[Rfam]
RNA sequence: CUAAUGUUUCUUGCUUAAAUGGGUAUUCCAUGAAAGUGAUUCACACUUCACAAUGCAGACCUCUAAUUAUGAGUGGGUUUCUCUCUUCAUGAGAUGCUCAUUUAAGCAAGCAAUGUUAG
Numbered sequence: 001c002u003a004a005u006g007u008u009u010c011u012u013g014c015u016u017a018a019a020u021g022g023g024u025a026u027u028c029c030a031u032g033a034a035a036g037u038g039a040u041u042c043a044c045a046c047u048u049c050a051c052a053a054u055g056c057a058g059a060c061c062u063c064u065a066a067u068u069a070u071g072a073g074u075g076g077g078u079u080u081c082u083c084u085c086u087u088c089a090u091g092a093g094a095u096g097c098u099c100a101u102u103u104a105a106g107c108a109a110g111c112a113a114u115g116u117u118a119g
Base pairs, nucleotide, nucleotide: 004116005115006114007113008112010110011109012108013107014106015105016104017103018102019101020100021099022098023097024096025095026094027093029091030090031089032088

This 119-nucleotide RNA sequence from Brassica carinata belongs to the Rfam family "MIR828 microRNA precursor family". The literature on the family includes a 2006 paper in Genes Dev by Rajagopalan et al., "A diverse and evolutionarily fluid set of microRNAs in Arabidopsis thaliana". Taxonomically the source falls in Brassica (Eukaryota, Tracheophyta, eudicotyledons, Brassiceae). The match comes from Rfam's covariance-model search (84 bits).